Manganese Mn2+ riboswitch aptamer (yybP-ykoY): a 183-nucleotide sequence from Polaromonas sp. OV174. From the family's description: This RNA was originally discovered in E. coli during a large scale screen and was named SraF. The family was later found to exist upstream of related families of protein genes in many bacteria, including the the yybP and ykoK genes in B. subtilis. The match comes from Rfam's covariance-model search (97 bits).
[Rfam]
RNA sequence: AGCGCUGUCAUUGGGGAGUAGCCAGCCUUUCAAUUUUUGAAAGGGGCUUGCGUCAACAGACUUGUCCAGCAUGGACAUGGCGCAAGCGGUCUUCGGAUCAAGCGAGACCUUUGACUGCACAGCCACCGUUUUAGGCCGGGGGGGUCGUGCAGUCAUGGGUUUUUGUUCCGGCCGGAGUUAUUC
Numbered sequence: 001a002g003c004g005c006u007g008u009c010a011u012u013g014g015g016g017a018g019u020a021g022c023c024a025g026c027c028u029u030u031c032a033a034u035u036u037u038u039g040a041a042a043g044g045g046g047c048u049u050g051c052g053u054c055a056a057c058a059g060a061c062u063u064g065u066c067c068a069g070c071a072u073g074g075a076c077a078u079g080g081c082g083c084a085a086g087c088g089g090u091c092u093u094c095g096g097a098u099c100a101a102g103c104g105a106g107a108c109c110u111u112u113g114a115c116u117g118c119a120c121a122g123c124c125a126c127c128g129u130u131u132u133a134g135g136c137c138g139g140g141g142g143g144g145u146c147g148u149g150c151a152g153u154c155a156u157g158g159g160u161u162u163u164u165g166u167u168c169c170g171g172c173c174g175g176a177g178u179u180a181u182u183c
Stems, first nucleotide, its partner, number of pairs: 026044003046087010063077005088182003091177005